[Rfam]
RNA sequence: CAGACACACUCUGAAGAGCGGUCCGUUUCGUCCACGGACACACCGCAGGAGCAAGUGGCACCCCGCGUGCCAUGAAUCUCUCAGGUUCCAAACAGAGGGGGCGUC
Numbered sequence: 001c002a003g004a005c006a007c008a009c010u011c012u013g014a015a016g017a018g019c020g021g022u023c024c025g026u027u028u029c030g031u032c033c034a035c036g037g038a039c040a041c042a043c044c045g046c047a048g049g050a051g052c053a054a055g056u057g058g059c060a061c062c063c064c065g066c067g068u069g070c071c072a073u074g075a076a077u078c079u080c081u082c083a084g085g086u087u088c089c090a091a092a093c094a095g096a097g098g099g100g101g102c103g104u105c
Stems, first nucleotide, its partner, number of pairs: 007099001009097005021039006042086003045082001049080003055073006
Dot-bracket structure: ......(.(((((.......((((((.......))))))..((((...(((...((((((.......))))))....))).).)))......))))).)......